[Rfam]
RNA: CRISPR RNA direct repeat element
Organism: Limnospira maxima
RNA sequence: GUUUCCGUCCCCUUGCGGGGAAUUGGUAGGGUUGGAC
Numbered sequence: 001g002u003u004u005c006c007g008u009c010c011c012c013u014u015g016c017g018g019g020g021a022a023u024u025g026g027u028a029g030g031g032u033u034g035g036a037c
Stems, first nucleotide, its partner, number of pairs: 005026002008021005
Dot-bracket structure: ....((.(((((....)))))...))...........